[Rfam]
A member of the RNA family "DUF3268 RNA", 123 nucleotides long.
The sequence is in the family's curated seed alignment.
The family's RNA type in Rfam is small RNA.
The family's consensus secondary structure is taken from published work.

RNA sequence: GCAGAUGCCCCGCGCUCAGGCUUUCGAUACGGCAAUCGAGCUCUUGCCGUCAGCUAACCGGCCCACGAGGGGGCGGGAAUCGUUACGAGCUUGCGCACUGAGCGGACUCCCACGGUGCGGGGC
Numbered sequence: 001g002c003a004g005a006u007g008c009c010c011c012g013c014g015c016u017c018a019g020g021c022u023u024u025c026g027a028u029a030c031g032g033c034a035a036u037c038g039a040g041c042u043c044u045u046g047c048c049g050u051c052a053g054c055u056a057a058c059c060g061g062c063c064c065a066c067g068a069g070g071g072g073g074c075g076g077g078a079a080u081c082g083u084u085a086c087g088a089g090c091u092u093g094c095g096c097a098c099u100g101a102g103c104g105g106a107c108u109c110c111c112a113c114g115g116u117g118c119g120g121g122g123c
Stems, first nucleotide, its partner, number of pairs: 007123010025082004029050007058076003062072003087109003091105004